[Rfam]
RNA: mir-3389 microRNA precursor family
Organism: Spodoptera littoralis
RNA sequence: CCAGUCAUAGCCGAUGUUCCACAGGAGCGGCCCCAGAACCGAACCCUGCGGAACACCGCGUGACAUC
Numbered sequence: 001c002c003a004g005u006c007a008u009a010g011c012c013g014a015u016g017u018u019c020c021a022c023a024g025g026a027g028c029g030g031c032c033c034c035a036g037a038a039c040c041g042a043a044c045c046c047u048g049c050g051g052a053a054c055a056c057c058g059c060g061u062g063a064c065a066u067c
Stems, first nucleotide, its partner, number of pairs: 004064005010059002013056001015055006024049001026047002029045002033041001